azaaromatic riboswitch aptamer (yjdF RNA): a 102-nucleotide RNA sequence from Anaerostipes rhamnosivorans. Pairs were carried over by alignment from the consensus structure, which is taken from published work. The match comes from Rfam's covariance-model search (90 bits).
RNA sequence: AGAAGCGAAGAUAAAAACACGGUCCGGUUGGUAGUCCGGGCGCGGGAGAUGUAUCCUGUCAGUAACCUGCCUCCUUGGUUGUCCAUUCUUUGUUCAUAUCUU
Numbered sequence: 001a002g003a004a005g006c007g008a009a010g011a012u013a014a015a016a017a018c019a020c021g022g023u024c025c026g027g028u029u030g031g032u033a034g035u036c037c038g039g040g041c042g043c044g045g046g047a048g049a050u051g052u053a054u055c056c057u058g059u060c061a062g063u064a065a066c067c068u069g070c071c072u073c074c075u076u077g078g079u080u081g082u083c084c085a086u087u088c089u090u091u092g093u094u095c096a097u098a099u100c101u102u
Stems, first nucleotide, its partner, number of pairs: 004094008022041006042059006069079003